RNA sequence: UAAUCAUUGGUGACAAGUUCCUUGAUUAAUUAUGAUAGUACACAUUUGAUUAAUCAUAAUUAUUUUGGUACUAUCAGAAUUAUUUUGGUACUAUGAUAGUACACUACC
Numbered sequence: 001u002a003a004u005c006a007u008u009g010g011u012g013a014c015a016a017g018u019u020c021c022u023u024g025a026u027u028a029a030u031u032a033u034g035a036u037a038g039u040a041c042a043c044a045u046u047u048g049a050u051u052a053a054u055c056a057u058a059a060u061u062a063u064u065u066u067g068g069u070a071c072u073a074u075c076a077g078a079a080u081u082a083u084u085u086u087g088g089u090a091c092u093a094u095g096a097u098a099g100u101a102c103a104c105u106a107c108c
Stems, first nucleotide, its partner, number of pairs: 004106001007103001008101002012097001014095002019090001023087003027082005
Description
A member of the RNA family "MIR480 microRNA precursor family" from Cladocopium goreaui, 108 nucleotides long. The organism belongs to Cladocopium, within Eukaryota. For this family Rfam cites "Novel and mechanical stress-responsive MicroRNAs in Populus trichocarpa that are absent from Arabidopsis" (Lu et al., Plant Cell, 2005). The base pairs follow the family's consensus structure, which was predicted with WAR.